Rfam assigns this 103-nucleotide sequence from Trichoderma atroviride to the family "Small nucleolar RNA Z13/snr52". The source organism's lineage runs through Eukaryota, Opisthokonta, Pezizomycotina, Sordariomycetes and Trichoderma atroviride. Its family is annotated with nucleolus and RNA processing in the Gene Ontology. The family has 42 seed sequences and 1,203 matches in Rfam 15.1. Rfam's curators put it in the seed alignment.

[Rfam]
RNA sequence: UCCCCUUUCAUGAUGAAAUAUACCGGAUGUAAACUUUUGUCACGUCGGAAAGCGCAAAACCAUGUCGAGAUUUCCGUUGCCUUCCUUCUGAUUUAUCAAGGGG
Numbered sequence: 001u002c003c004c005c006u007u008u009c010a011u012g013a014u015g016a017a018a019u020a021u022a023c024c025g026g027a028u029g030u031a032a033a034c035u036u037u038u039g040u041c042a043c044g045u046c047g048g049a050a051a052g053c054g055c056a057a058a059a060c061c062a063u064g065u066c067g068a069g070a071u072u073u074c075c076g077u078u079g080c081c082u083u084c085c086u087u088c089u090g091a092u093u094u095a096u097c098a099a100g101g102g103g
Stems, first nucleotide, its partner, number of pairs: 003102003024076004